Guanidine-I riboswitch aptamer: a 104-nucleotide RNA from Nitrosomonas europaea. The source organism's lineage runs through Bacteria, Pseudomonadota, Nitrosomonadaceae, Nitrosomonas and Nitrosomonas europaea. The pairing is the family consensus, mapped onto this sequence.
RNA sequence: AUUACUUCAGGCUAGGGUUCCGGCUUUCCCAGGGAAAGUGACUGGUCCGAGAGCUUGAGGCUUCGUCAUACGAAGCUCCACGGAGGGAUAAAAGCCCGGGAGGU
Numbered sequence: 001a002u003u004a005c006u007u008c009a010g011g012c013u014a015g016g017g018u019u020c021c022g023g024c025u026u027u028c029c030c031a032g033g034g035a036a037a038g039u040g041a042c043u044g045g046u047c048c049g050a051g052a053g054c055u056u057g058a059g060g061c062u063u064c065g066u067c068a069u070a071c072g073a074a075g076c077u078c079c080a081c082g083g084a085g086g087g088a089u090a091a092a093a094g095c096c097c098g099g100g101a102g103g104u
Base pairs, nucleotide, nucleotide: 007058008057009056010055011054012053015048016047020045021044022042023039024038025037026036027035028034059077060076061075062074063073064072065071079099081102085097086096087095